[Rfam]
RNA sequence: ACAAUCUCGGAGGGAGUAAGUUUAUCUGGGGGAAACGCGUAGUGAACAUUCAAGCUGAUUGUUAAAACUACGUAGGGUAGGUACUAGUAAGGCCUUUUACUAGUAGACGGGAUACUGUUGUCGUGGGAGCGACUUUAAAUGGGAAACCCAACA
Numbered sequence: 001a002c003a004a005u006c007u008c009g010g011a012g013g014g015a016g017u018a019a020g021u022u023u024a025u026c027u028g029g030g031g032g033a034a035a036c037g038c039g040u041a042g043u044g045a046a047c048a049u050u051c052a053a054g055c056u057g058a059u060u061g062u063u064a065a066a067a068c069u070a071c072g073u074a075g076g077g078u079a080g081g082u083a084c085u086a087g088u089a090a091g092g093c094c095u096u097u098u099a100c101u102a103g104u105a106g107a108c109g110g111g112a113u114a115c116u117g118u119u120g121u122c123g124u125g126g127g128a129g130c131g132a133c134u135u136u137a138a139a140u141g142g143g144a145a146a147c148c149c150a151a152c153a
Base pairs, nucleotide, nucleotide: 006030007029008028009027010026011025037073038072039071040070041069042068043067046062047061048060082105083104084103085102086101087100088099089098090097091096120133121132122131123130124129
RNA: DABA-DC-AT RNA